[Rfam]
RNA sequence: GGGUGAGAUGAGGAUAUAAAUAUAUAGUUGAUGGAUGAUAUGAUGUCCAAUGAAUCAUGUAUUAGCUCUAUCUGAUCAUAC
Numbered sequence: 001g002g003g004u005g006a007g008a009u010g011a012g013g014a015u016a017u018a019a020a021u022a023u024a025u026a027g028u029u030g031a032u033g034g035a036u037g038a039u040a041u042g043a044u045g046u047c048c049a050a051u052g053a054a055u056c057a058u059g060u061a062u063u064a065g066c067u068c069u070a071u072c073u074g075a076u077c078a079u080a081c
Stems, first nucleotide, its partner, number of pairs: 003079003033048004
RNA: Small nucleolar RNA Z102/R77
Organism: Hordeum vulgare